[Rfam]
RNA: msiK RNA
RNA sequence: ACCACGUCCACUUCACAACGGAUCGUCCGGCACGUACCUGCCGGUGGAGGGAAGUACCG
Numbered sequence: 001a002c003c004a005c006g007u008c009c010a011c012u013u014c015a016c017a018a019c020g021g022a023u024c025g026u027c028c029g030g031c032a033c034g035u036a037c038c039u040g041c042c043g044g045u046g047g048a049g050g051g052a053a054g055u056a057c058c059g
Stems, first nucleotide, its partner, number of pairs: 009051001011049005027044006